[Rfam]
RNA sequence: GGCUCAAUGAUAACACCCCUUAAUGCAUUCCUUGGAAAGCUGAACAAAAUAUGAGAACCCCCUACCGUCGUUCUCAUCGAAUCUGAGGUCC
Numbered sequence: 001g002g003c004u005c006a007a008u009g010a011u012a013a014c015a016c017c018c019c020u021u022a023a024u025g026c027a028u029u030c031c032u033u034g035g036a037a038a039g040c041u042g043a044a045c046a047a048a049a050u051a052u053g054a055g056a057a058c059c060c061c062c063u064a065c066c067g068u069c070g071u072u073c074u075c076a077u078c079g080a081a082u083c084u085g086a087g088g089u090c091c
Stems, first nucleotide, its partner, number of pairs: 001091002004088002026053003032047003
Dot-bracket structure: ((.((....................(((...(((..........)))...))).................................)).))
A member of the RNA family "Small nucleolar RNA SNORD116" from Galemys pyrenaicus, 91 nucleotides long. A search with the family's covariance model found it, with a score of 77 bits. By type it is a C/D-box small nucleolar RNA. For this family Rfam cites "Identification of brain-specific and imprinted small nucleolar RNA genes exhibiting an unusual genomic organization" (Cavaille et al., Proc Natl Acad Sci U S A, 2000). Rfam 15.1 lists 3,260 matches to the family in 170 species. Pairs were carried over by alignment from the consensus structure, which was predicted with PFOLD.